[Rfam]
A member of the RNA family "Guanidine-I riboswitch aptamer" from Clostridium cylindrosporum, 99 nucleotides long. Pairs were carried over by alignment from the consensus structure. It scores 84 bits against the family's covariance model. On this family, see Nelson et al., Mol Cell 2017: "Metabolism of Free Guanidine in Bacteria Is Regulated by a Widespread Riboswitch Class".
RNA sequence: UUAAAUGUUUUCUAGGGUUCCGCAGCAAUUUUGUUGGUCUGGACCGAGAGAAGACACACAGUUAUCGCUGUGCCACGGAAGGAUAAAAGCCUGGGAGAU
Numbered sequence: 001u002u003a004a005a006u007g008u009u010u011u012c013u014a015g016g017g018u019u020c021c022g023c024a025g026c027a028a029u030u031u032u033g034u035u036g037g038u039c040u041g042g043a044c045c046g047a048g049a050g051a052a053g054a055c056a057c058a059c060a061g062u063u064a065u066c067g068c069u070g071u072g073c074c075a076c077g078g079a080a081g082g083a084u085a086a087a088a089g090c091c092u093g094g095g096a097g098a099u
Stems, first nucleotide, its partner, number of pairs: 007055006015045002020042002022039001023036005057072005074094001076097001080092003